[Rfam]
RNA: Hepatitis C virus stem-loop SL2531 and SL2549AU
RNA sequence: UGCUUGCAGACGCGCGUGUCUGCUCCUGCUUGUGGAUGAUGUUACUCAUAUCCCAAGUGGAGGCGGCUUUGG
Numbered sequence: 001u002g003c004u005u006g007c008a009g010a011c012g013c014g015c016g017u018g019u020c021u022g023c024u025c026c027u028g029c030u031u032g033u034g035g036a037u038g039a040u041g042u043u044a045c046u047c048a049u050a051u052c053c054c055a056a057g058u059g060g061a062g063g064c065g066g067c068u069u070u071g072g
Base pairs, nucleotide, nucleotide: 006023007022008021009020010019011018012017025066027065028064029063030062031061034058037055038054